[Rfam]
RNA sequence: UACCGGCGCAUCAGCGGUGUUUCUGAUGCACCUCCCUGUUGGACUCGGCCGGACCCUUGGGUUCGGCCUAUUUU
Numbered sequence: 001u002a003c004c005g006g007c008g009c010a011u012c013a014g015c016g017g018u019g020u021u022u023c024u025g026a027u028g029c030a031c032c033u034c035c036c037u038g039u040u041g042g043a044c045u046c047g048g049c050c051g052g053a054c055c056c057u058u059g060g061g062u063u064c065g066g067c068c069u070a071u072u073u074u
Stems, first nucleotide, its partner, number of pairs: 008029007047068008
The family of this 74-nucleotide sequence from Jannaschia donghaensis is "Singlet oxygen resistance RNA X". Rfam describes the family as follows. SorX (RSs2461)like SorY is a singlet oxygen induced sRNA that counteracts oxidative stress by targeting mRNA for a transporter in Rhodobacter. The family's RNA type in Rfam is small RNA. Rfam links the family to the GO term response to photooxidative stress. A reference for the family is Berghoff et al. (2009), "Photooxidative stress-induced and abundant small RNAs in Rhodobacter sphaeroides", Mol Microbiol. The match comes from Rfam's covariance-model search (57 bits).